[Rfam]
RNA sequence: CGGGAGAACCCUCGUGAAGGAACUCGGCAAAAUGACCCCGUACCUUCGGUACAAGGGGUGCUCCCUCGCAAGGGGGAGCCGCAGAGAAUCGGCUCUAGCGACUGUUUAUCAAAAACACAGGACUCUGCUAAUUCGCAAGAAGACGUAUAGAGUCUGACGCCUGCUCGGUGUCGGUAGGUUGAGGAAGCCAGUCAGCGCAAGCGAAGCCGGCGACCGAAGCCCCGAUAAACGGCGGCCGUAACUAUGACGGUCCUAAGGUAGCGAAGUUCCUUGUCGGGUAAGUUCCGACCUGCAUGAAUGGCGUAACGACUGGAGCACUGUCUCCACGAGGGACCCG
Dot-bracket structure: ((((....((((((((.(((..............(((((....(....).....)))))((((((((....))))))))(...).......(((((((((..(((.........)))..(((((((((...(((....)))...)..))))))))..((((.(((..(((((((..(((...((..(((.((..((....))...)).)))..))...))))))))..)))))((((((.......))))))(...).....(.........((((((.....))))))).........))))...)).)))))))....))).)))))))).))))
Numbered sequence: 001c002g003g004g005a006g007a008a009c010c011c012u013c014g015u016g017a018a019g020g021a022a023c024u025c026g027g028c029a030a031a032a033u034g035a036c037c038c039c040g041u042a043c044c045u046u047c048g049g050u051a052c053a054a055g056g057g058g059u060g061c062u063c064c065c066u067c068g069c070a071a072g073g074g075g076g077a078g079c080c081g082c083a084g085a086g087a088a089u090c091g092g093c094u095c096u097a098g099c100g101a102c103u104g105u106u107u108a109u110c111a112a113a114a115a116c117a118c119a120g121g122a123c124u125c126u127g128c129u130a131a132u133u134c135g136c137a138a139g140a141a142g143a144c145g146u147a148u149a150g151a152g153u154c155u156g157a158c159g160c161c162u163g164c165u166c167g168g169u170g171u172c173g174g175u176a177g178g179u180u181g182a183g184g185a186a187g188c189c190a191g192u193c194a195g196c197g198c199a200a201g202c203g204a205a206g207c208c209g210g211c212g213a214c215c216g217a218a219g220c221c222c223c224g225a226u227a228a229a230c231g232g233c234g235g236c237c238g239u240a241a242c243u244a245u246g247a248c249g250g251u252c253c254u255a256a257g258g259u260a261g262c263g264a265a266g267u268u269c270c271u272u273g274u275c276g277g278g279u280a281a282g283u284u285c286c287g288a289c290c291u292g293c294a295u296g297a298a299u300g301g302c303g304u305a306a307c308g309a310c311u312g313g314a315g316c317a318c319u320g321u322c323u324c325c326a327c328g329a330g331g332g333a334c335c336c337g
Stems, first nucleotide, its partner, number of pairs: 001337004009332008018323003035059005044049001060079008080084001092316007099308002103117003120155008128145001132141003158303004163233003168230002170226005177221003183215002187211003191207002195202002234252006253257001263290001273289006